[Rfam]
This 92-nucleotide sequence from Novosphingobium sp. TH158 belongs to the Rfam family "Selenocysteine transfer RNA".

RNA sequence: GGAAGAGAAACGUCCCCGGUGGGGUGCGCGGACUUCAAAUCCGUUGGGAGGCGCUGAGAGCGUCUCCGGCAGGUUCGACUCCUGCCUCUUCC
Numbered sequence: 001g002g003a004a005g006a007g008a009a010a011c012g013u014c015c016c017c018g019g020u021g022g023g024g025u026g027c028g029c030g031g032a033c034u035u036c037a038a039a040u041c042c043g044u045u046g047g048g049a050g051g052c053g054c055u056g057a058g059a060g061c062g063u064c065u066c067c068g069g070c071a072g073g074u075u076c077g078a079c080u081c082c083u084g085c086c087u088c089u090u091c092c
Stems, first nucleotide, its partner, number of pairs: 001092007011026006028044005047067005070084004